[Rfam]
RNA: Small nucleolar RNA SNORD60
Organism: Eudyptes chrysocome
RNA sequence: GGCCGGUGACGAGCGAACUGCCUUUCUGACACCUCGUCUGAGGGCGGCGGGCGGCCGCGGCCCCUGCUGACGAUCCACGGCUGAGGCCC
Numbered sequence: 001g002g003c004c005g006g007u008g009a010c011g012a013g014c015g016a017a018c019u020g021c022c023u024u025u026c027u028g029a030c031a032c033c034u035c036g037u038c039u040g041a042g043g044g045c046g047g048c049g050g051g052c053g054g055c056c057g058c059g060g061c062c063c064c065u066g067c068u069g070a071c072g073a074u075c076c077a078c079g080g081c082u083g084a085g086g087c088c089c
Stems, first nucleotide, its partner, number of pairs: 001088004044058005